[Rfam]
RNA sequence: UUCGUUAGAACACUACCUAAGGCGCUCGUUGCAACGGCGAGUGCACAGAAGGCCCGCCACGCCGGCAGCGGACCUUCGCAGGCAGACAUUUUCUGCCCGGCCUUGCCACAAGGCCAACGGGACAUAACAGUCAAC
Numbered sequence: 001u002u003c004g005u006u007a008g009a010a011c012a013c014u015a016c017c018u019a020a021g022g023c024g025c026u027c028g029u030u031g032c033a034a035c036g037g038c039g040a041g042u043g044c045a046c047a048g049a050a051g052g053c054c055c056g057c058c059a060c061g062c063c064g065g066c067a068g069c070g071g072a073c074c075u076u077c078g079c080a081g082g083c084a085g086a087c088a089u090u091u092u093c094u095g096c097c098c099g100g101c102c103u104u105g106c107c108a109c110a111a112g113g114c115c116a117a118c119g120g121g122a123c124a125u126a127a128c129a130g131u132c133a134a135c
Stems, first nucleotide, its partner, number of pairs: 022044009051074002054071004081097006099115006